[Rfam]
RNA sequence: GCUUAUGAUGAUAUAAUCCAUGUUAAUGAGGUGUAGUGGAUCCAAGACCUUGCUUUGCAGGGAGAACCACUUGGUGAAACUACAUUACAUAUGAUCAUAUUGGAUUCUUCUGAGGC
Numbered sequence: 001g002c003u004u005a006u007g008a009u010g011a012u013a014u015a016a017u018c019c020a021u022g023u024u025a026a027u028g029a030g031g032u033g034u035a036g037u038g039g040a041u042c043c044a045a046g047a048c049c050u051u052g053c054u055u056u057g058c059a060g061g062g063a064g065a066a067c068c069a070c071u072u073g074g075u076g077a078a079a080c081u082a083c084a085u086u087a088c089a090u091a092u093g094a095u096c097a098u099a100u101u102g103g104a105u106u107c108u109u110c111u112g113a114g115g116c
Stems, first nucleotide, its partner, number of pairs: 001116003048062005
The family of this 116-nucleotide sequence from Solanum tuberosum is "Small nucleolar RNA Z278".
The base pairs follow the family's consensus structure, which was predicted with PFOLD.
Gene Ontology terms of the family: RNA processing and nucleolus.
For this family Rfam cites "The high diversity of snoRNAs in plants: identification and comparative study of 120 snoRNA genes from Oryza sativa" (Chen et al., Nucleic Acids Res, 2003).
The source organism's lineage runs through Eukaryota, Pentapetalae, Solanoideae, Solaneae and Solanum.
The family has 7 seed sequences and 1,130 matches in Rfam 15.1.
About the family: snoZ278 is a C/D box small nucleolar RNA. Its methylation guide targets have not been reported.